[Rfam]
RNA: small nucleolar RNA snoR114
RNA sequence: GAGCUAUGAAGUAAAUCGCGCUCUUGUGACGGUUAGGGUCCGUUACGGUGCUUCUGAUCUAUUGAUUAGAAAAUUGCGCUUCUGAGCUC
Numbered sequence: 001g002a003g004c005u006a007u008g009a010a011g012u013a014a015a016u017c018g019c020g021c022u023c024u025u026g027u028g029a030c031g032g033u034u035a036g037g038g039u040c041c042g043u044u045a046c047g048g049u050g051c052u053u054c055u056g057a058u059c060u061a062u063u064g065a066u067u068a069g070a071a072a073a074u075u076g077c078g079c080u081u082c083u084g085a086g087c088u089c
Base pairs, nucleotide, nucleotide: 001089002088003087004086